[Rfam]
RNA sequence: AUUCCUACUGUUACUGUCCGGCUCCAUAAUUCAUAUAAUGAUGGACAGUGA
Numbered sequence: 001a002u003u004c005c006u007a008c009u010g011u012u013a014c015u016g017u018c019c020g021g022c023u024c025c026a027u028a029a030u031u032c033a034u035a036u037a038a039u040g041a042u043g044g045a046c047a048g049u050g051a
Stems, first nucleotide, its partner, number of pairs: 011051008
RNA: malK-II RNA
Organism: Vibrio vulnificus